[Rfam]
RNA sequence: AAAUGCCAUGAGGUAUCUGGUACUUGGCUUAAAUUAGUAGCUAGGUAUCUCGUAAGAUUGGCAGAUAAUAAUAAGAACAGUUCUUGCGACGCUGGUUGCUCCUUUUAUGAGCUUGCAGUUACUUUUUUUCCUGUUUACAUUU
Numbered sequence: 001a002a003a004u005g006c007c008a009u010g011a012g013g014u015a016u017c018u019g020g021u022a023c024u025u026g027g028c029u030u031a032a033a034u035u036a037g038u039a040g041c042u043a044g045g046u047a048u049c050u051c052g053u054a055a056g057a058u059u060g061g062c063a064g065a066u067a068a069u070a071a072u073a074a075g076a077a078c079a080g081u082u083c084u085u086g087c088g089a090c091g092c093u094g095g096u097u098g099c100u101c102c103u104u105u106u107a108u109g110a111g112c113u114u115g116c117a118g119u120u121a122c123u124u125u126u127u128u129u130c131c132u133g134u135u136u137a138c139a140u141u142u
Stems, first nucleotide, its partner, number of pairs: 004063005009057001019049011031038001076135005091119004098112003
RNA: Small nucleolar RNA F1/F2/snoR5a